[Rfam]
Shown here is a 100-nucleotide sequence from Spiroplasma sp. NBRC 100390, a member of the family "Purine riboswitch aptamer". It scores 51 bits against the family's covariance model. Taxonomically the source falls in Spiroplasma (Bacteria, Mollicutes, Entomoplasmatales, Spiroplasmataceae).
Nucleotides: 100
Stems, first nucleotide, its partner, number of pairs: 019085007029047006056076005
Number, partner (000 for none) and nucleotide at each position: 001000c002000a003000u004000g005000a006000a007000a008000a009000u010000a011000a012000a013000u014000a015000a016000u017000a018000u019085a020084c021083c022082u023081g024080u025079a026000u027000a028000u029047g030046c031045u032044a033043g034042a035000a036000a037000u038000a039000u040000g041000g042034u043033c044032u045031a046030g047029u048000g049000u050000u051000u052000c053000u054000a055000c056076g057075u058074c059073u060072u061000a062000c063000c064000a065000u066000g067000g068000g069000a070000a071000a072060a073059a074058g075057a076056c077000u078000c079025u080024a081023u082022a083021g084020g085019u086000u087000a088000a089000u090000g091000g092000u093000u094000u095000u096000g097000c098000u099000u100000u